RNA sequence: AUUCGUACCUCGGGGGGCCAUCCGAGCGAUUGGAUGGCUGAGAUGCAAUGAUGCGGACCCGUUGAACCUGAACCGGUUAAGACCGGCGGAGGGAAGGUAAGACAUUGUUCU
Numbered sequence: 001a002u003u004c005g006u007a008c009c010u011c012g013g014g015g016g017g018c019c020a021u022c023c024g025a026g027c028g029a030u031u032g033g034a035u036g037g038c039u040g041a042g043a044u045g046c047a048a049u050g051a052u053g054c055g056g057a058c059c060c061g062u063u064g065a066a067c068c069u070g071a072a073c074c075g076g077u078u079a080a081g082a083c084c085g086g087c088g089g090a091g092g093g094a095a096g097g098u099a100a101g102a103c104a105u106u107g108u109u110c111u
Base pairs, nucleotide, nucleotide: 006099007098008097009096010095011061012060013059014058017038018037019036020035021034022033023032024031045054046053047052067092068091069090073086074085075084076083

A member of the RNA family "TPP riboswitch aptamer (THI element)" from Thalassobium sp. R2A62, 111 nucleotides long. Rfam links the family to the GO term thiamine pyrophosphate binding. The organism belongs to Thalassobium, within Bacteria.